[Rfam]
RNA sequence: AUCCGGUGCCGUAUCUGCGGUGCACAAGCGCUGGCAUGGUUGAAUGCCACUCACUUCUCCUGACCGCGGAUGUACCGGCAGCGAGACACAAGCGGGUGGUCCCGGAAAGGUCGGGUUUUUCCCGGCCUUUUUGUUU
Numbered sequence: 001a002u003c004c005g006g007u008g009c010c011g012u013a014u015c016u017g018c019g020g021u022g023c024a025c026a027a028g029c030g031c032u033g034g035c036a037u038g039g040u041u042g043a044a045u046g047c048c049a050c051u052c053a054c055u056u057c058u059c060c061u062g063a064c065c066g067c068g069g070a071u072g073u074a075c076c077g078g079c080a081g082c083g084a085g086a087c088a089c090a091a092g093c094g095g096g097u098g099g100u101c102c103c104g105g106a107a108a109g110g111u112c113g114g115g116u117u118u119u120u121c122c123c124g125g126c127c128u129u130u131u132u133g134u135u136u
Stems, first nucleotide, its partner, number of pairs: 004033005046100007056086003061080002064078003103133012
The family of this 136-nucleotide sequence from Rhizobium sp. NFR07 is "Alphaproteobacterial sRNA ar35". The match comes from Rfam's covariance-model search (47 bits). Taxonomically the source falls in Rhizobium (Bacteria, Pseudomonadati, Alphaproteobacteria, Rhizobiaceae).